[Rfam]
RNA sequence: GCCUUUGUGAGAACCUUUUGAAUCACUACAGUACUUGAUUCAAAAGGUUCUCGGCAG
Number, nucleotide and partner (000 for none) at each position: 001g000002c000003c000004u000005u000006u000007g000008u053009g052010a051011g050012a049013a048014c047015c046016u045017u044018u043019u042020g041021a040022a039023u038024c037025a036026c000027u000028a000029c000030a000031g000032u000033a000034c000035u000036u025037g024038a023039u022040u021041c020042a019043a018044a017045a016046g015047g014048u013049u012050c011051u010052c009053g008054g000055c000056a000057g000

This 57-nucleotide RNA belongs to the Rfam family "Plastid-ccsA-ndhD-2 3UTR RNA". Pairs were carried over by alignment from the consensus structure, which was predicted with LocARNA. Rfam classes the family as a cis-regulatory element. The family has 421 seed sequences and 875 matches in Rfam 15.1.